RNA sequence: UUGUAAAAAUAUGUUUAGCUGUAGAGCUUGUACUUUAUGUUUGGGUAAAGGCAUAUUGAUGAA
Number, nucleotide and partner (000 for none) at each position: 001u000002u000003g000004u000005a000006a000007a000008a057009a056010u055011a054012u053013g052014u030015u000016u000017a028018g027019c026020u025021g000022u000023a000024g000025a020026g019027c018028u017029u000030g014031u000032a000033c050034u049035u048036u047037a046038u000039g000040u000041u000042u000043g000044g000045g000046u037047a036048a035049a034050g033051g000052c013053a012054u011055a010056u009057u008058g000059a000060u000061g000062a000063a000

Rfam assigns this 63-nucleotide RNA from Streptobacillus moniliformis to the family "S4-Fusobacteriales ribosomal protein leader".
On this family, see Eckert and Weinberg, BMC Microbiol 2020: "Discovery of 20 novel ribosomal leader candidates in bacteria and archaea".
Rfam's curators put it in the seed alignment.